[Rfam]
This 88-nucleotide sequence from Marinithermus hydrothermalis belongs to the Rfam family "c-di-GMP-II-GAG riboswitch aptamer". Pairs were carried over by alignment from the consensus structure, which is taken from published work. It is one of the family's seed sequences. Taxonomically the source falls in Marinithermus hydrothermalis (Bacteria, Deinococcota, Deinococci, Thermales).
RNA sequence: GGAGCCGUAAGCGGCGAUGACCCGCCCAUUCCCAACUCGGGCGCCAAGGGAGGGCGGCGAGCCAGUGGCGCGACCGGCUUGCGGCCUC
Dot-bracket structure: ((.((((((((.(((......((((((...(.......[[[[[[[....).))))))...)))...]]]]]..]]..)))))))).))